RNA sequence: AUAAAAACAGCUAUCCGAGUUAGUUUGGCUAAGAAAUUUUUUAAUUUUAUGCUGGAUUAACCAGAGUUUGUAUGUCAAACUCUCAGAGUUAGAGGAGAAAUCUUAUAGCUUUCCGUUUUAGAGAAGGAUAAAGGCUUAUGUUUUU
Numbered sequence: 001a002u003a004a005a006a007a008c009a010g011c012u013a014u015c016c017g018a019g020u021u022a023g024u025u026u027g028g029c030u031a032a033g034a035a036a037u038u039u040u041u042u043a044a045u046u047u048u049a050u051g052c053u054g055g056a057u058u059a060a061c062c063a064g065a066g067u068u069u070g071u072a073u074g075u076c077a078a079a080c081u082c083u084c085a086g087a088g089u090u091a092g093a094g095g096a097g098a099a100a101u102c103u104u105a106u107a108g109c110u111u112u113c114c115g116u117u118u119u120a121g122a123g124a125a126g127g128a129u130a131a132a133g134g135c136u137u138a139u140g141u142u143u144u145u
Stems, first nucleotide, its partner, number of pairs: 003139001006136001012130005019061011033048006063083008086111006093104004112122002
The family of this 145-nucleotide RNA sequence is "Molybdenum/Tungsten riboswitch aptamer (Moco RNA motif)".